[Rfam]
Nucleotides: 058
Base pairs, nucleotide, nucleotide: 003056004055007052008051009050010049011048012047013046014045015044016043017042018041019040020039021038022037
Number, partner (000 for none) and nucleotide at each position: 001000g002000g003056g004055a005000u006000a007052g008051c009050u010049c011048c012047g013046u014045g015044u016043u017042g018041c019040c020039g021038u022037c023000u024000g025000a026000c027000c028000c029000c030000c031000c032000g033000a034000c035000c036000c037022g038021a039020c040019g041018g042017c043016a044015a045014c046013a047012c048011g049010g050009g051008g052007c053000u054000c055004u056003c057000a058000u
Shown here is a 58-nucleotide sequence from Mycolicibacterium austroafricanum, a member of the family "F6 TB sRNA". On this family, see Arnvig and Young, Mol Microbiol 2009: "Identification of small RNAs in Mycobacterium tuberculosis". It is annotated as a small RNA. Lineage of the source: Bacteria > Actinomycetota > Actinomycetes > Mycobacteriales > Mycolicibacterium austroafricanum. It is one of the family's seed sequences.